Rfam assigns this 102-nucleotide RNA from Sporosarcina sp. JAI121 to the family "Purine riboswitch aptamer".
RNA sequence: UGGGAAUAAAAUAAAGAGUAUCGUAUAAAACCGGGGAUAUGGCCCGGAAGUUUCUACCGGGACACCUUAAAUGUUCCGACUACGAUUUCAUUAGACGGGGGG
Numbered sequence: 001u002g003g004g005a006a007u008a009a010a011a012u013a014a015a016g017a018g019u020a021u022c023g024u025a026u027a028a029a030a031c032c033g034g035g036g037a038u039a040u041g042g043c044c045c046g047g048a049a050g051u052u053u054c055u056a057c058c059g060g061g062a063c064a065c066c067u068u069a070a071a072u073g074u075u076c077c078g079a080c081u082a083c084g085a086u087u088u089c090a091u092u093a094g095a096c097g098g099g100g101g102g
Stems, first nucleotide, its partner, number of pairs: 018088001020086006031047005058078007

It scores 81 bits against the family's covariance model.